[Rfam]
RNA: Ribosomal protein L10 leader
Organism: Thermanaeromonas toyohensis
RNA sequence: AUCAUUACAAGCAAGCAACCGUAGACAGCAGGUGCUCCCUAAGGGAGCUUAAACAGGCCUGCCGAGGUUGGUAGUAGCCCUUAAAAACACUAAGGGAGGAGUGCCCCUGCUGUCGUGGCAGGGGCUUUCUAUUUUAUAAG
Number, nucleotide and partner (000 for none) at each position: 001a000002u000003c000004a000005u000006u000007a000008c000009a000010a000011g000012c000013a000014a000015g000016c000017a000018a000019c000020c000021g000022u000023a000024g000025a000026c000027a000028g062029c061030a060031g059032g058033u057034g048035c047036u046037c045038c044039c000040u000041a000042a000043g000044g038045g037046a036047g035048c034049u000050u000051a000052a000053a000054c000055a000056g000057g033058c032059c031060u030061g029062c028063c000064g000065a000066g000067g000068u000069u000070g000071g000072u000073a000074g000075u000076a000077g000078c000079c000080c000081u000082u000083a000084a000085a000086a000087a000088c000089a000090c000091u000092a000093a000094g000095g000096g000097a000098g000099g000100a000101g000102u000103g125104c124105c123106c122107c121108u120109g119110c118111u117112g116113u000114c000115g000116u112117g111118g110119c109120a108121g107122g106123g105124g104125c103126u000127u000128u000129c000130u000131a000132u000133u000134u000135u000136a000137u000138a000139a000140g000